[Rfam]
RNA sequence: AAUGAUGGUUUUGUCGCUUUUCAUUAUAAGUCUUAUGGGACUUUUUGUGUACUCAAAAAGCUCCAUAAUAUCCAAAGUGGGUUUACUCACUACAGAUAUUAUAGAGCC
Number, nucleotide and partner (000 for none) at each position: 001a025002a024003u023004g022005a021006u000007g000008g017009u016010u000011u000012u000013g000014u000015c000016g009017c008018u000019u000020u000021u005022c004023a003024u002025u001026a000027u000028a043029a042030g041031u040032c039033u000034u000035a000036u000037g000038g000039g032040a031041c030042u029043u028044u000045u000046u000047g000048u000049g000050u000051a000052c000053u000054c000055a000056a000057a000058a000059a000060g107061c106062u105063c104064c000065a102066u101067a100068a099069u098070a097071u096072c095073c000074a000075a000076a091077g090078u089079g088080g087081g000082u000083u000084u000085a000086c000087u080088c079089a078090c077091u076092a000093c000094a000095g072096a071097u070098a069099u068100u067101a066102u065103a000104g063105a062106g061107c060108c000
A member of the RNA family "Streptococcus RNA 266" from Streptococcus himalayensis, 108 nucleotides long. It is annotated as a small RNA. Pairs were carried over by alignment from the consensus structure. NCBI's taxonomy places the organism under Bacteria, Bacillati, Bacillota, Lactobacillales, Streptococcus.